c-di-GMP-I riboswitch aptamer: a 94-nucleotide sequence from Pontibacillus yanchengensis. Rfam's curators write: GEMM was predicted in a large-scale screen for bacterial structured RNA regulatory elements. The base pairs follow the family's consensus structure, which is taken from published work. Taxonomically the source falls in Pontibacillus yanchengensis (Bacteria, Bacillati, Bacillota, Bacilli).
[Rfam]
RNA sequence: UUACGAGAAUGGCAAACUUAUCGAAAGAUAAGGACGCAAAGCUUUGGACCUACCGUAUCGAGUUACUCCAUACUAAGGUUGCCAAGCCUCCGAA
Numbered sequence: 001u002u003a004c005g006a007g008a009a010u011g012g013c014a015a016a017c018u019u020a021u022c023g024a025a026a027g028a029u030a031a032g033g034a035c036g037c038a039a040a041g042c043u044u045u046g047g048a049c050c051u052a053c054c055g056u057a058u059c060g061a062g063u064u065a066c067u068c069c070a071u072a073c074u075a076a077g078g079u080u081g082c083c084a085a086g087c088c089u090c091c092g093a094a
Stems, first nucleotide, its partner, number of pairs: 012037002017032006041087003045084003048079003055073004